[Rfam]
RNA sequence: CAGAGAUGCCCUUCCGGGGUGGCAGUUUGGAACCGUCGCAAGUCCCAAUCUCCCAGCACGGCAGGGCAUCUCCUCGUUACGGCACGCUCACAACCCCCAGGUCAUCGGUGGAUCGAG
Numbered sequence: 001c002a003g004a005g006a007u008g009c010c011c012u013u014c015c016g017g018g019g020u021g022g023c024a025g026u027u028u029g030g031a032a033c034c035g036u037c038g039c040a041a042g043u044c045c046c047a048a049u050c051u052c053c054c055a056g057c058a059c060g061g062c063a064g065g066g067c068a069u070c071u072c073c074u075c076g077u078u079a080c081g082g083c084a085c086g087c088u089c090a091c092a093a094c095c096c097c098c099a100g101g102u103c104a105u106c107g108g109u110g111g112a113u114c115g116a117g
Stems, first nucleotide, its partner, number of pairs: 003072010013061001015060002020055003025050001027048002030045001032043002098115001100113001102111003
This 117-nucleotide RNA sequence from Serinicoccus hydrothermalis belongs to the Rfam family "Actinobacteria sRNA Ms_IGR-7".
The organism belongs to Serinicoccus, within Bacteria.
A search with the family's covariance model found it, with a score of 54 bits.
By type it is a small RNA.
The pairing is the family consensus, mapped onto this sequence.